[Rfam]
RNA: TPP riboswitch aptamer (THI element)
Organism: Nitritalea halalkaliphila
RNA sequence: ACGAUCAUGAGGGGGUGCCUUAAUAUAACGGGCUGAGAUCAUACCCAUCUACCUGAUCCGGGUAAUGCCGGCGUAGGGAACAUGAAAACGUCUAAA
Numbered sequence: 001a002c003g004a005u006c007a008u009g010a011g012g013g014g015g016u017g018c019c020u021u022a023a024u025a026u027a028a029c030g031g032g033c034u035g036a037g038a039u040c041a042u043a044c045c046c047a048u049c050u051a052c053c054u055g056a057u058c059c060g061g062g063u064a065a066u067g068c069c070g071g072c073g074u075a076g077g078g079a080a081c082a083u084g085a086a087a088a089c090g091u092c093u094a095a096a
Base pairs, nucleotide, nucleotide: 006084007083008082009081012046013045014044016041017033018032019031020030052077053076054075055074058071059070060069061068